RNA: mir-1302 microRNA precursor family
RNA sequence: UUUUUAGUGUAAAUAUGUUCCAUUUAAUAUUUGGGACAUGCUUAUACUAAAG
Dot-bracket structure: .....(((((((.(((.(((((........).)))).))).)))))))....